About this RNA: DUF3800-VIII RNA: a 72-nucleotide sequence from Allorhodopirellula solitaria.
Nucleotides: 072
Stems, first nucleotide, its partner, number of pairs: 003070008012062004017057001021041001023039007
Number, partner (000 for none) and nucleotide at each position: 001000u002000u003070g004069a005068c006067c007066c008065u009064g010063u011000c012062g013061c014060u015059c016000u017057c018000g019000a020000a021041g022000g023039c024038u025037c026036a027035a028034g029033u030000u031000c032000c033029a034028c035027u036026u037025g038024g039023g040000g041021c042000a043000c044000g045000c046000c047000g048000c049000a050000a051000g052000g053000c054000a055000u056000a057017g058000u059015g060014a061013g062012u063010a064009c065008g066007g067006g068005g069004u070003u071000u072000u
The family's RNA type in Rfam is small RNA. It scores 42 bits against the family's covariance model. Rfam describes the family as follows. Bacteroidetes, Cyanobacteria, Firmicutes, Planctomycetes (1 example), Proteobacteria, Tenericutes (1 example). Taxonomically the source falls in Allorhodopirellula (Bacteria, Pseudomonadati, Planctomycetia, Pirellulales).